Rfam assigns this 490-nucleotide part of an RNA from Blastocystis hominis to the family "Eukaryotic large subunit ribosomal RNA". Gene Ontology terms of the family: structural constituent of ribosome and ribosome.
[Rfam]
RNA sequence: UAGAACAAUGUAGAUAAGGGAAGUCGGCAAAAUAGAUCCGUAACUUCGGGAAAAGGAUUGGCUCUAAGGGUUGGGCACGUUGGGCCUUGGGCGGACGUCCUGGGAGCAGGCCGCCACUAGUCGGGCAACCGACCGGAGGCGGCCAGCAUCCGGGUGCUGAUGCCCUUGGCAGGCUUCGGCCGUCCGGCGUGCGGUUAACAACCAACUUAGAACUGGUACGGACAAGGGGAAUCUGACUGUCUAAUUAAAACAUAGCAUUGCGAUGGCCAGAAAGUGGUGUUGACGCAAUGUGAUUUCUGCCCAGUGCUCUGAAUGUCAAAGUGAAGAAAUUCAACCAAGCGCGGGUAAACGGCGGGAGUAACUAUGACUCUCUUAAGGUAGCCAAAUGCCUCGUCAUCUAAUUAGUGACGCGCAUGAAUGGAUUAAUGAGAUUCCCACUGUCCCUAUCUACUAUCUAGCGAAACCACAGCCAAGGGAACGGGCUUGGAAG
Numbered sequence: 001u002a003g004a005a006c007a008a009u010g011u012a013g014a015u016a017a018g019g020g021a022a023g024u025c026g027g028c029a030a031a032a033u034a035g036a037u038c039c040g041u042a043a044c045u046u047c048g049g050g051a052a053a054a055g056g057a058u059u060g061g062c063u064c065u066a067a068g069g070g071u072u073g074g075g076c077a078c079g080u081u082g083g084g085c086c087u088u089g090g091g092c093g094g095a096c097g098u099c100c101u102g103g104g105a106g107c108a109g110g111c112c113g114c115c116a117c118u119a120g121u122c123g124g125g126c127a128a129c130c131g132a133c134c135g136g137a138g139g140c141g142g143c144c145a146g147c148a149u150c151c152g153g154g155u156g157c158u159g160a161u162g163c164c165c166u167u168g169g170c171a172g173g174c175u176u177c178g179g180c181c182g183u184c185c186g187g188c189g190u191g192c193g194g195u196u197a198a199c200a201a202c203c204a205a206c207u208u209a210g211a212a213c214u215g216g217u218a219c220g221g222a223c224a225a226g227g228g229g230a231a232u233c234u235g236a237c238u239g240u241c242u243a244a245u246u247a248a249a250a251c252a253u254a255g256c257a258u259u260g261c262g263a264u265g266g267c268c269a270g271a272a273a274g275u276g277g278u279g280u281u282g283a284c285g286c287a288a289u290g291u292g293a294u295u296u297c298u299g300c301c302c303a304g305u306g307c308u309c310u311g312a313a314u315g316u317c318a319a320a321g322u323g324a325a326g327a328a329a330u331u332c333a334a335c336c337a338a339g340c341g342c343g344g345g346u347a348a349a350c351g352g353c354g355g356g357a358g359u360a361a362c363u364a365u366g367a368c369u370c371u372c373u374u375a376a377g378g379u380a381g382c383c384a385a386a387u388g389c390c391u392c393g394u395c396a397u398c399u400a401a402u403u404a405g406u407g408a409c410g411c412g413c414a415u416g417a418a419u420g421g422a423u424u425a426a427u428g429a430g431a432u433u434c435c436c437a438c439u440g441u442c443c444c445u446a447u448c449u450a451c452u453a454u455c456u457a458g459c460g461a462a463a464c465c466a467c468a469g470c471c472a473a474g475g476g477a478a479c480g481g482g483c484u485u486g487g488a489a490g
Base pairs, nucleotide, nucleotide: 001457002456003455004454010451011450012449013448014447015446016445018443019442020441035059036058037057038056039055044049060214061213063211064210065209066208067207068206069203070202071201072200073199075192076191077190078189079188080187081186082185083184084170085169086168089165090164091163099154100153101152102151103150104149106147107146109144110143111142112141113140114139115138117136118135120133121132122131123130124129215219227436228435229434230433231432232431233430234428235427238252239251240250255291256290257289258288259287260286261285262284266278267277268276269275295422296421297420299353300352301351304350305349306346307345308344309343311342314341315340316339322333323332324331325330354372355371356370357369358368359367373377393409394408395407396406397405470487471486472485473484474483